[Rfam]
Nucleotides: 071
Base pairs, nucleotide, nucleotide: 001067002066003065004064006062007061008060010059011058012057017035018034019033020031021030022029023028037054038053039052040051
Number, partner (000 for none) and nucleotide at each position: 001067g002066a003065u004064c005000c006062a007061g008060u009000c010059u011058c012057c013000g014000a015000a016000u017035u018034g019033u020031c021030a022029c023028c024000g025000u026000a027000u028023g029022g030021u031020g032000u033019g034018c035017g036000u037054u038053u039052c040051u041000u042000g043000g044000a045000u046000u047000c048000c049000c050000u051040a052039g053038a054037a055000u056000a057012g058011g059010a060008g061007c062006u063000a064004g065003a066002u067001c068000g069000u070000u071000u
Rfam assigns this 71-nucleotide RNA sequence to the family "DUF3800-IX RNA". Actinobacteria, Firmicutes (1 example), Nitrospirae, Proteobacteria, Verrucomicrobia (1 example). By type it is a small RNA. The base pairs follow the family's consensus structure, which is taken from published work. Rfam's curators put it in the seed alignment.